This 114-nucleotide RNA from Aneurinibacillus danicus belongs to the Rfam family "SAM riboswitch aptamer (S box leader)".
RNA sequence: CGCUUAUCGAGAGAGGUGGAGGGACUGGCCCGAUGAAGCCCGGCAGCGGAUUUUCCGUGUUACGGAGAAUGCUGUGCCAAUUCCAGCAGGAUAUUCUAUCCUGACAGAUAAGAG
Numbered sequence: 001c002g003c004u005u006a007u008c009g010a011g012a013g014a015g016g017u018g019g020a021g022g023g024a025c026u027g028g029c030c031c032g033a034u035g036a037a038g039c040c041c042g043g044c045a046g047c048g049g050a051u052u053u054u055c056c057g058u059g060u061u062a063c064g065g066a067g068a069a070u071g072c073u074g075u076g077c078c079a080a081u082u083c084c085a086g087c088a089g090g091a092u093a094u095u096c097u098a099u100c101c102u103g104a105c106a107g108a109u110a111a112g113a114g
Stems, first nucleotide, its partner, number of pairs: 001114001003112006013041001015040003021031003025086004042078004047074002049070001051068005082106001087103006
The SAM riboswitch is found upstream of a number of genes which code for proteins involved in methionine or cysteine biosynthesis in Gram-positive bacteria. The SAM riboswitch acts at the level of transcription termination control. The predicted structure consists of a complex stem-loop region followed by a single stem loop terminator region. An alternative and mutually exclusive form involves bases in the 3' segment of helix 1 with those in the 5' region of helix 5 to form a structure termed the anti-terminator form. This entry represents the conserved core of the complex structure involving helices 1-4. It scores 84 bits against the family's covariance model.